The record is a 353-nucleotide part of an RNA from Candidatus Kinetoplastidibacterium blastocrithidiae, which matches "Bacterial small subunit ribosomal RNA" in Rfam. Taxonomically the source falls in Candidatus Kinetoplastidibacterium blastocrithidiae (Bacteria, Pseudomonadati, Pseudomonadota, Betaproteobacteria). The family is grouped with related families in Rfam's "SSU clan".
[Rfam]
RNA sequence: GGCGUAAAGAGUGCGCAGGCGGUUCGGAAAGAAGGAUGUGAAAUCCCAGGGCUUAACCUUGGAACUGCAUUUUUAACUACCGAACUAGAGUGUGUCAGAGGGAGGUGGAAUUCCGCAUGUAGCAGUGAAAUGCGUAGAUAUGCGGAGGAACACCGAUGGCGAAGGCAGCCUCCUGGGAUAACACUGACGCUCAUGCACGAAAGCGUGGGGAGCAAACAGGAUUAGAUACCCUGGUAGUCCACGCCCUAAACGAUGUCAACUAGCUGUUGGGACCUUCGGGUCUUAGUGGCGCAGCUAACGCGUGAAGUUGACCGCCUGGGGAGUACGGUCGCAAGAUUAAAACUCAAAGGAAU
Numbered sequence: 001g002g003c004g005u006a007a008a009g010a011g012u013g014c015g016c017a018g019g020c021g022g023u024u025c026g027g028a029a030a031g032a033a034g035g036a037u038g039u040g041a042a043a044u045c046c047c048a049g050g051g052c053u054u055a056a057c058c059u060u061g062g063a064a065c066u067g068c069a070u071u072u073u074u075a076a077c078u079a080c081c082g083a084a085c086u087a088g089a090g091u092g093u094g095u096c097a098g099a100g101g102g103a104g105g106u107g108g109a110a111u112u113c114c115g116c117a118u119g120u121a122g123c124a125g126u127g128a129a130a131u132g133c134g135u136a137g138a139u140a141u142g143c144g145g146a147g148g149a150a151c152a153c154c155g156a157u158g159g160c161g162a163a164g165g166c167a168g169c170c171u172c173c174u175g176g177g178a179u180a181a182c183a184c185u186g187a188c189g190c191u192c193a194u195g196c197a198c199g200a201a202a203g204c205g206u207g208g209g210g211a212g213c214a215a216a217c218a219g220g221a222u223u224a225g226a227u228a229c230c231c232u233g234g235u236a237g238u239c240c241a242c243g244c245c246c247u248a249a250a251c252g253a254u255g256u257c258a259a260c261u262a263g264c265u266g267u268u269g270g271g272a273c274c275u276u277c278g279g280g281u282c283u284u285a286g287u288g289g290c291g292c293a294g295c296u297a298a299c300g301c302g303u304g305a306a307g308u309u310g311a312c313c314g315c316c317u318g319g320g321g322a323g324u325a326c327g328g329u330c331g332c333a334a335g336a337u338u339a340a341a342a343c344u345c346a347a348a349g350g351a352a353u
Stems, first nucleotide, its partner, number of pairs: 001316003009313001011198004018191003022085006030078002032074009046062006089185003093180004100174007107151001111147008122133003159166002203244006212238002217233004255312006263290012294301002318345003327338004